[Rfam]
RNA sequence: GGAGGUGAGGGUGAUCUGGCUGCAACAUGUCACCCCAUGGAUCCCCAGGGUCGAUUGAGCUGAUCUGGCUGGCUGGGUGGGUGUCCCCUUCCUCCCCCACAGCUCCAUGUGUGUCCCUCCUGAAGUUGCACACUGGAUCGAAGAGGAUGACCCUCCCCAAGAGAGACCUCAGCACUCUGAGGGUGUACAGUACCUGUGCUCCCCUGCUAGAGCCUCCAGCCAAGCUCAGGGCCCAUGUCUAGGAGAACCUAGGGUAGUCAAGCUUCCAAGCUCACACAUCCAAGUGAGGCACUGCAUGGGGUUUUGGUUU
Number, nucleotide and partner (000 for none) at each position: 001g106002g105003a104004g000005g100006u099007g098008a000009g096010g095011g094012u000013g091014a090015u000016c000017u000018g088019g087020c000021u000022g000023c000024a000025a084026c083027a082028u081029g078030u077031c076032a000033c072034c071035c068036c067037a066038u000039g000040g065041a064042u063043c062044c000045c059046c000047a000048g000049g000050g000051u000052c000053g000054a000055u000056u000057g000058a000059g045060c000061u000062g043063a042064u041065c040066u037067g036068g035069c000070u000071g034072g033073c000074u000075g000076g031077g030078u029079g000080g000081g028082u027083g026084u025085c000086c000087c019088c018089u000090u014091c013092c000093u000094c011095c010096c009097c000098c007099a006100c005101a000102g000103c000104u003105c002106c001107a000108u000109g000110u000111g000112u000113g000114u166115c165116c000117c163118u162119c161120c000121u136122g000123a134124a000125g133126u132127u000128g000129c000130a000131c000132a126133c125134u123135g000136g121137a000138u160139c000140g158141a000142a000143g000144a000145g156146g155147a154148u000149g000150a000151c000152c000153c000154u147155c146156c145157c000158c140159a000160a138161g119162a118163g117164a000165g115166a114167c000168c000169u000170c000171a000172g000173c000174a000175c000176u000177c000178u000179g000180a000181g000182g000183g000184u000185g000186u000187a000188c000189a000190g000191u000192a000193c000194c262195u261196g000197u000198g000199c257200u256201c000202c254203c253204c252205u251206g250207c000208u000209a000210g000211a000212g000213c000214c245215u244216c243217c242218a240219g239220c000221c237222a236223a000224g000225c000226u000227c000228a000229g000230g000231g000232c000233c000234c000235a000236u222237g221238u000239c219240u218241a000242g217243g216244a215245g214246a000247a000248c000249c000250u206251a205252g204253g203254g202255u000256a200257g199258u000259c000260a000261a195262g194263c000264u000265u000266c000267c000268a000269a000270g000271c000272u000273c000274a000275c000276a000277c000278a000279u000280c000281c000282a000283a000284g000285u000286g000287a000288g000289g000290c000291a308292c307293u306294g302295c301296a000297u000298g000299g000300g000301g295302u294303u000304u000305u000306g293307g292308u291309u000310u000